[Rfam]
The record is a 120-nucleotide sequence from Branchiostoma floridae, which matches "Small nucleolar RNA SNORD22" in Rfam. On this family, see Tycowski et al., Nature 1996: "A mammalian gene with introns instead of exons generating stable RNA products". The source organism's lineage runs through Eukaryota, Chordata, Leptocardii, Amphioxiformes and Branchiostoma.
RNA sequence: UUGCAAUGAUGAAAGUCCAUGCUAUGAGCUCCCUGUUUCGUGCCAGAGCCCGAAAGGGAGAACCCACUGGUGCUGGCAGGGGGUCGAGAGAUAUCCUGUCUUCUGGACGGUCUGAGCAAC
Numbered sequence: 001u002u003g004c005a006a007u008g009a010u011g012a013a014a015g016u017c018c019a020u021g022c023u024a025u026g027a028g029c030u031c032c033c034u035g036u037u038u039c040g041u042g043c044c045a046g047a048g049c050c051c052g053a054a055a056g057g058g059a060g061a062a063c064c065c066a067c068u069g070g071u072g073c074u075g076g077c078a079g080g081g082g083g084u085c086g087a088g089a090g091a092u093a094u095c096c097u098g099u100c101u102u103c104u105g106g107a108c109g110g111u112c113u114g115a116g117c118a119a120c
Base pairs, nucleotide, nucleotide: 001119002118003117004116